The record is a 129-nucleotide RNA sequence from Providencia sneebia, which matches "tp2" in Rfam. The literature on the family includes a 2001 paper in Curr Biol by Rivas et al., "Computational identification of noncoding RNAs in E. coli by comparative genomics". Rfam classes the family as a small RNA.

[Rfam]
RNA sequence: UGUAUUCCUUAUCUGUUAUCUGUUUUUUAAUGUUUAUGUGGAGCCUAUCUCCACGCUACUCUACUUAUCAAUCAACCCCAAAAUAGCGGGAAGAUAGGCCCUGCUGGUAUUGCCGCUAAAACCCUCAAA
Numbered sequence: 001u002g003u004a005u006u007c008c009u010u011a012u013c014u015g016u017u018a019u020c021u022g023u024u025u026u027u028u029a030a031u032g033u034u035u036a037u038g039u040g041g042a043g044c045c046u047a048u049c050u051c052c053a054c055g056c057u058a059c060u061c062u063a064c065u066u067a068u069c070a071a072u073c074a075a076c077c078c079c080a081a082a083a084u085a086g087c088g089g090g091a092a093g094a095u096a097g098g099c100c101c102u103g104c105u106g107g108u109a110u111u112g113c114c115g116c117u118a119a120a121a122c123c124c125u126c127a128a129a
Stems, first nucleotide, its partner, number of pairs: 002113003020106001022104002040102002043099007052090001054088003058084001060082001062080001